[Rfam]
RNA: ASpks TB sRNA
RNA sequence: CUUGAGCGACCCGAGCCAGAGCGGCUCCCCGGACCGGUCCCGGCCGUACGUCGCCAGCAGCGCCUGCGCCUC
Dot-bracket structure: .............((((.....)))).(.(....((...(.(.(.(....).).).)...))...).)....